[Rfam]
Shown here is an 87-nucleotide RNA sequence from Buchananella hordeovulneris, a member of the family "ZMP/ZTP riboswitch aptamer (pfl RNA motif)".
It scores 54 bits against the family's covariance model.
The base pairs follow the family's consensus structure, which is taken from published work.

RNA sequence: AGGGGCGGCUGCAACUGGCGCGGAUGGAAAACCAUCGGGGAGCAGCGGACCACCGAUACGUGAGCGUCGCCCGCCUGGGCGCUCACC
Number, nucleotide and partner (000 for none) at each position: 001a000002g000003g051004g050005g000006c048007g000008g046009c045010u044011g043012c042013a000014a000015c039016u038017g075018g074019c073020g072021c000022g000023g000024a035025u034026g033027g032028a000029a000030a000031a000032c027033c026034a025035u024036c000037g000038g016039g015040g000041a000042g012043c011044a010045g009046c008047g000048g006049a000050c004051c003052a000053c000054c000055g000056a000057u000058a000059c000060g000061u000062g000063a000064g082065c081066g080067u079068c078069g000070c000071c000072c020073g019074c018075c017076u000077g000078g068079g067080c066081g065082c064083u000084c000085a000086c000087c000